[Rfam]
RNA: Group II catalytic intron D1-D4-1
RNA sequence: AGAGUAUAUAGAGAUAUAUACUUGUUUAACAGAAGUCAGCCGAGGCCGUAGUACCUAAAGAACAAGGGAAGGGC
Numbered sequence: 001a002g003a004g005u006a007u008a009u010a011g012a013g014a015u016a017u018a019u020a021c022u023u024g025u026u027u028a029a030c031a032g033a034a035g036u037c038a039g040c041c042g043a044g045g046c047c048g049u050a051g052u053a054c055c056u057a058a059a060g061a062a063c064a065a066g067g068g069a070a071g072g073g074c
Stems, first nucleotide, its partner, number of pairs: 001023001003022008036043002045074003054067003